[Rfam]
RNA sequence: CGAUGAGGUAGAGGUGCAGUUUUCAAGAGUACUCAAUGGGAGGAUGACAAACAGCGAUCAUUGAGGAAAGGGAAAGUCUGCCGAAGUGAAAAUGAGGGUCACCGAGUUUUCGCUGGUAUAUUUCUGAAUAGGAUAUAUACUGUCAUGCAAGGAAAUGGAUUGCAUGAAGCGCUACUGAUCGU
Numbered sequence: 001c002g003a004u005g006a007g008g009u010a011g012a013g014g015u016g017c018a019g020u021u022u023u024c025a026a027g028a029g030u031a032c033u034c035a036a037u038g039g040g041a042g043g044a045u046g047a048c049a050a051a052c053a054g055c056g057a058u059c060a061u062u063g064a065g066g067a068a069a070g071g072g073a074a075a076g077u078c079u080g081c082c083g084a085a086g087u088g089a090a091a092a093u094g095a096g097g098g099u100c101a102c103c104g105a106g107u108u109u110u111c112g113c114u115g116g117u118a119u120a121u122u123u124c125u126g127a128a129u130a131g132g133a134u135a136u137a138u139a140c141u142g143u144c145a146u147g148c149a150a151g152g153a154a155a156u157g158g159a160u161u162g163c164a165u166g167a168a169g170c171g172c173u174a175c176u177g178a179u180c181g182u
Stems, first nucleotide, its partner, number of pairs: 007176005016081004021075004032065008085114009096103001115141007123133003143167007
Shown here is a 182-nucleotide sequence from Virgibacillus sp. MSP4-1, a member of the family "Lysine riboswitch aptamer". The family's consensus secondary structure is taken from published work. On this family, see Mandal et al., Cell 2003: "Riboswitches Control Fundamental Biochemical Pathways in Bacillus subtilis and Other Bacteria". The match comes from Rfam's covariance-model search (118 bits).